RNA sequence: AGACCAUGCCUUUCAGGCAUCCUCUCCUAAACUUAAAGCCGCUCUUCGGGGCGGCUUUUUCUUUAGGCAUC
Dot-bracket structure: .......((((...))))..................((((((((....))))))))...............